[Rfam]
RNA sequence: AUAGCAUAUAAAGUUAGUACUCGUAUAAUUUUGGAAAAAAUCGGUCCAAGAGUUUCUACCAAACUACCGUAUAGUUUGACUACGAGGGAAUAUGAUCAUUUU
Numbered sequence: 001a002u003a004g005c006a007u008a009u010a011a012a013g014u015u016a017g018u019a020c021u022c023g024u025a026u027a028a029u030u031u032u033g034g035a036a037a038a039a040a041u042c043g044g045u046c047c048a049a050g051a052g053u054u055u056c057u058a059c060c061a062a063a064c065u066a067c068c069g070u071a072u073a074g075u076u077u078g079a080c081u082a083c084g085a086g087g088g089a090a091u092a093u094g095a096u097c098a099u100u101u102u
Stems, first nucleotide, its partner, number of pairs: 018088001020086006029051007060078007
RNA: Purine riboswitch aptamer
Organism: Gottfriedia endophytica